[Rfam]
Description: The family of this 97-nucleotide sequence from Amphiprion percula is "Z30 small nucleolar RNA". The base pairs follow the family's consensus structure, which was predicted with PFOLD. Gene Ontology terms of the family: nucleolus and RNA processing. For this family Rfam cites "Purified box C/D snoRNPs are able to reproduce site-specific 2'-O-methylation of target RNA in vitro" (Galardi et al., Mol Cell Biol, 2002). The match comes from Rfam's covariance-model search (76 bits). NCBI's taxonomy places the organism under Eukaryota, Deuterostomia, Neopterygii, Ovalentaria, Amphiprion.
RNA sequence: CUGCACUGAUGACUGUAGAUGAGACUGACCUGGAAUUGUCGGCCUCCGGGUCGCCUCUGUCCAGGAAAUGACUGCAGUUAAUCUUCUCUCUGAGCAG
Numbered sequence: 001c002u003g004c005a006c007u008g009a010u011g012a013c014u015g016u017a018g019a020u021g022a023g024a025c026u027g028a029c030c031u032g033g034a035a036u037u038g039u040c041g042g043c044c045u046c047c048g049g050g051u052c053g054c055c056u057c058u059g060u061c062c063a064g065g066a067a068a069u070g071a072c073u074g075c076a077g078u079u080a081a082u083c084u085u086c087u088c089u090c091u092g093a094g095c096a097g
Base pairs, nucleotide, nucleotide: 003095004094038055040053041052
Dot-bracket structure: ..((.................................(.((..........)).)......................................))..